The record is a 69-nucleotide RNA sequence from Polypterus senegalus, which matches "Small nucleolar RNA SNORD58" in Rfam. Taxonomically the source falls in Polypterus (Eukaryota, Bilateria, Gnathostomata, Polypteridae). Rfam classes the family as a C/D-box small nucleolar RNA. From the family's description: snoRNA U58 is found in introns 1, 3 and 6 of the ribosomal protein RPL17 gene in humans. On this family, see Galardi et al., Mol Cell Biol 2002: "Purified box C/D snoRNPs are able to reproduce site-specific 2'-O-methylation of target RNA in vitro".
RNA sequence: UUGCAGUGAUGACUAUCUUAGGACACCUUUGGAAAAAAUAAUGAAAAGAAAAAAAAACUGCUGAGCAAC
Numbered sequence: 001u002u003g004c005a006g007u008g009a010u011g012a013c014u015a016u017c018u019u020a021g022g023a024c025a026c027c028u029u030u031g032g033a034a035a036a037a038a039u040a041a042u043g044a045a046a047a048g049a050a051a052a053a054a055a056a057a058c059u060g061c062u063g064a065g066c067a068a069c
Stems, first nucleotide, its partner, number of pairs: 001068004